[Rfam]
RNA sequence: GGCACACGGCCGGGGUGCCCCACGAGGGGCUGAGAUGAGACCCGACGAACCUGAUCCGGUUAGCACCGGCGCUAGGGAGCUGUCAUGAGUAGUCC
Number, nucleotide and partner (000 for none) at each position: 001g000002g000003c000004a000005c000006a083007c082008g081009g080010c079011c044012g043013g042014g041015g000016u038017g030018c029019c028020c027021c026022a000023c000024g000025a000026g021027g020028g019029g018030c017031u000032g000033a000034g000035a000036u000037g000038a016039g000040a000041c014042c013043c012044g011045a000046c000047g000048a000049a000050c076051c075052u074053g073054a000055u000056c069057c068058g067059g066060u000061u000062a000063g000064c000065a000066c059067c058068g057069g056070c000071g000072c000073u053074a052075g051076g050077g000078a000079g010080c009081u008082g007083u006084c000085a000086u000087g000088a000089g000090u000091a000092g000093u000094c000095c000